[Rfam]
RNA: Bacterial large signal recognition particle RNA
Organism: Olavius algarvensis associated proteobacterium Delta 3
RNA sequence: UUGUGCUAGGCGGGGAGCUAGCGGUGCCCUUUUCCCGAAAUCCGCUUAUGCGGGGCUGAAUUCCCCCCAGAGGGUUUGUUAACAAAGCGGAUUGGCCAUCGACCGGCCGCCGCGCAACAGACGAUCACGAACCUCGUCAGGUCCGGAAGGAAGCAGCGAUAAGUGAUGCAGACUGUGUCGCGGACCGAUCCCGGUCACGUGCUGGCCAUGAUGCCGAGGAGAUAACUCGACAGGGGGUGCACAA
Numbered sequence: 001u002u003g004u005g006c007u008a009g010g011c012g013g014g015g016a017g018c019u020a021g022c023g024g025u026g027c028c029c030u031u032u033u034c035c036c037g038a039a040a041u042c043c044g045c046u047u048a049u050g051c052g053g054g055g056c057u058g059a060a061u062u063c064c065c066c067c068c069a070g071a072g073g074g075u076u077u078g079u080u081a082a083c084a085a086a087g088c089g090g091a092u093u094g095g096c097c098a099u100c101g102a103c104c105g106g107c108c109g110c111c112g113c114g115c116a117a118c119a120g121a122c123g124a125u126c127a128c129g130a131a132c133c134u135c136g137u138c139a140g141g142u143c144c145g146g147a148a149g150g151a152a153g154c155a156g157c158g159a160u161a162a163g164u165g166a167u168g169c170a171g172a173c174u175g176u177g178u179c180g181c182g183g184a185c186c187g188a189u190c191c192c193g194g195u196c197a198c199g200u201g202c203u204g205g206c207c208a209u210g211a212u213g214c215c216g217a218g219g220a221g222a223u224a225a226c227u228c229g230a231c232a233g234g235g236g237g238u239g240c241a242c243a244a
Base pairs, nucleotide, nucleotide: 001244002243003242004241005240006239009057010056011055012030013029014028015027017025018024019023034054035053036052037051039049063237064236065235066234067233072228073227074226075225076224079222080221083218087214088213092211093208094207095206096205097204101196102195103194104193105192106191110183111182112181113180114179115177116176118175119174120173122171124167125166126165127164128163134159135158136157137156142151143150144149